[Rfam]
RNA sequence: CGGUUGCCAUAACUCCGAGCUCUCGCAUGCUAAGUCGCACAGUGGUAUUUGCUGUACCGAUACGCAUCAAGAGCCAGUGACAUGUUGUCACAAGGGCUUAAUUGGAAAUGAUUAUGCCUCCCGUGUUUGGAAAGGUGUUCCGUGGCGCAACAA
Numbered sequence: 001c002g003g004u005u006g007c008c009a010u011a012a013c014u015c016c017g018a019g020c021u022c023u024c025g026c027a028u029g030c031u032a033a034g035u036c037g038c039a040c041a042g043u044g045g046u047a048u049u050u051g052c053u054g055u056a057c058c059g060a061u062a063c064g065c066a067u068c069a070a071g072a073g074c075c076a077g078u079g080a081c082a083u084g085u086u087g088u089c090a091c092a093a094g095g096g097c098u099u100a101a102u103u104g105g106a107a108a109u110g111a112u113u114a115u116g117c118c119u120c121c122c123g124u125g126u127u128u129g130g131a132a133a134g135g136u137g138u139u140c141c142g143u144g145g146c147g148c149a150a151c152a153a
Stems, first nucleotide, its partner, number of pairs: 011139003015135002019074005025068001028066003034061004077091005094119004099114006120130002
Dot-bracket structure: ..........(((.((..(((((.(..(((...((((....................))))..))).).)))))..(((((.....)))))..((((.((((((....)))))).))))((.......))...)).)))..............
Shown here is a 153-nucleotide RNA from Vibrionales bacterium SWAT-3, a member of the family "Molybdenum/Tungsten riboswitch aptamer (Moco RNA motif)". The base pairs follow the family's consensus structure, which is taken from published work.